A member of the RNA family "U4 spliceosomal RNA" from Hyaloscypha bicolor, 133 nucleotides long.
The family's consensus secondary structure is taken from published work.
The organism belongs to Hyaloscypha bicolor, within Eukaryota.
RNA sequence: AUCUAAGUGCAAGGGUUGUACGCAGAGCCGUGAAGAGAUACUCUGAGCUUGCGUUUUUGCUAGUUGAAAACUACCAACGACCAUCUCCCAUCGUGCACUUGUGCGGUGGGGAAUUUUUGUCUCAUAGCUUCCU
Numbered sequence: 001a002u003c004u005a006a007g008u009g010c011a012a013g014g015g016u017u018g019u020a021c022g023c024a025g026a027g028c029c030g031u032g033a034a035g036a037g038a039u040a041c042u043c044u045g046a047g048c049u050u051g052c053g054u055u056u057u058u059g060c061u062a063g064u065u066g067a068a069a070a071c072u073a074c075c076a077a078c079g080a081c082c083a084u085c086u087c088c089c090a091u092c093g094u095g096c097a098c099u100u101g102u103g104c105g106g107u108g109g110g111g112a113a114u115u116u117u118u119g120u121c122u123c124a125u126a127g128c129u130u131c132c133u
Stems, first nucleotide, its partner, number of pairs: 020054005026049003034044003086111011126133002